Rfam assigns this 77-nucleotide sequence to the family "CyVA-1 RNA". The family's consensus secondary structure is taken from published work. Rfam's curators put it in the seed alignment. Rfam's curators write: Cyanobacteria, Acidobacteria (1 example), Verrucomicrobia (1 example).

[Rfam]
RNA sequence: GAGGUGGCACAGGUUUUUUACCGUUUCCCCUGUCCUGGAGCGGCCAAAGGAGAACGGUGUCAGGCCGCUCACAUCCU
Dot-bracket structure: (.((((..((((.................))))....((((((((.................)))))))).)))).)
Numbered sequence: 001g002a003g004g005u006g007g008c009a010c011a012g013g014u015u016u017u018u019u020a021c022c023g024u025u026u027c028c029c030c031u032g033u034c035c036u037g038g039a040g041c042g043g044c045c046a047a048a049g050g051a052g053a054a055c056g057g058u059g060u061c062a063g064g065c066c067g068c069u070c071a072c073a074u075c076c077u
Stems, first nucleotide, its partner, number of pairs: 001077001003075004009033004038070008